[Rfam]
RNA sequence: GUCGAGCUAAGUAACGAGAGCUUGUGACCCGAGUGGGGAUAUCAAGGUGGUGGAACAAUGGUUCGAGUCCACGGGUCGGAUCUGGUGUUGGCAAGUUUCUGAACUGCCCAGUCCAAGCUGUGAGUAAUCCGUGUGGGUCGAGCGAAGGCUUGGCUUAGGCGGGUUCUAUAGUCGGAGGGUAAUGCGUGAGGCUGGUUUCACAGAGCAGCGACUACUUCCCGCUUACAGCAGUGGACGGACCACAGUUCGGCGUCGCCCAGAUCCACUUUGGCCUGCUGGUUCGAUCUCACCUGAACCACCAUUUUU
Numbered sequence: 001g002u003c004g005a006g007c008u009a010a011g012u013a014a015c016g017a018g019a020g021c022u023u024g025u026g027a028c029c030c031g032a033g034u035g036g037g038g039a040u041a042u043c044a045a046g047g048u049g050g051u052g053g054a055a056c057a058a059u060g061g062u063u064c065g066a067g068u069c070c071a072c073g074g075g076u077c078g079g080a081u082c083u084g085g086u087g088u089u090g091g092c093a094a095g096u097u098u099c100u101g102a103a104c105u106g107c108c109c110a111g112u113c114c115a116a117g118c119u120g121u122g123a124g125u126a127a128u129c130c131g132u133g134u135g136g137g138u139c140g141a142g143c144g145a146a147g148g149c150u151u152g153g154c155u156u157a158g159g160c161g162g163g164u165u166c167u168a169u170a171g172u173c174g175g176a177g178g179g180u181a182a183u184g185c186g187u188g189a190g191g192c193u194g195g196u197u198u199c200a201c202a203g204a205g206c207a208g209c210g211a212c213u214a215c216u217u218c219c220c221g222c223u224u225a226c227a228g229c230a231g232u233g234g235a236c237g238g239a240c241c242a243c244a245g246u247u248c249g250g251c252g253u254c255g256c257c258c259a260g261a262u263c264c265a266c267u268u269u270g271g272c273c274u275g276c277u278g279g280u281u282c283g284a285u286c287u288c289a290c291c292u293g294a295a296c297c298a299c300c301a302u303u304u305u306u
Stems, first nucleotide, its partner, number of pairs: 001040003004023005028037003044305010056293002059289002061286001063284004068279002072275006078264008087256001089255003099250008108238002111236005117229009126165007134157010166171001174219005185210003192203003